[Rfam]
RNA: Small nucleolar RNA SNORA33
Organism: Galemys pyrenaicus
RNA sequence: CAUUCAGUGAAUAUACUUACCAGGAUGUGUUUGCAGAAACUUCGAAAAAUCUGGCAGUAGCUCAGUUAUGUUAGGAGCCUUACAGACAUUGAAGUCAUAAGGUCCAUGAAAAUGGCUACAAGA
Numbered sequence: 001c002a003u004u005c006a007g008u009g010a011a012u013a014u015a016c017u018u019a020c021c022a023g024g025a026u027g028u029g030u031u032u033g034c035a036g037a038a039a040c041u042u043c044g045a046a047a048a049a050u051c052u053g054g055c056a057g058u059a060g061c062u063c064a065g066u067u068a069u070g071u072u073a074g075g076a077g078c079c080u081u082a083c084a085g086a087c088a089u090u091g092a093a094g095u096c097a098u099a100a101g102g103u104c105c106a107u108g109a110a111a112a113u114g115g116c117u118a119c120a121a122g123a
Stems, first nucleotide, its partner, number of pairs: 001053002012037001014035001016033001065116004077103006085096003